RNA sequence: AAAACAAACGGACCGUUGGCUUACCGAGCAACAUCACUUGCUCGGUGGAAGAUCUCCCCUUUGUCGU
Numbered sequence: 001a002a003a004a005c006a007a008a009c010g011g012a013c014c015g016u017u018g019g020c021u022u023a024c025c026g027a028g029c030a031a032c033a034u035c036a037c038u039u040g041c042u043c044g045g046u047g048g049a050a051g052a053u054c055u056c057c058c059c060u061u062u063g064u065c066g067u
Stems, first nucleotide, its partner, number of pairs: 004064003010058002015053003021048009
RNA: mir-2774 microRNA precursor family
Organism: Bombyx mori